[Rfam]
RNA sequence: CCUUGACAGUCACAUGACGUGGCUGACAUUUGCCAAGACAAGGAGAUUGACAUG
Numbered sequence: 001c002c003u004u005g006a007c008a009g010u011c012a013c014a015u016g017a018c019g020u021g022g023c024u025g026a027c028a029u030u031u032g033c034c035a036a037g038a039c040a041a042g043g044a045g046a047u048u049g050a051c052a053u054g
Stems, first nucleotide, its partner, number of pairs: 002042004007025005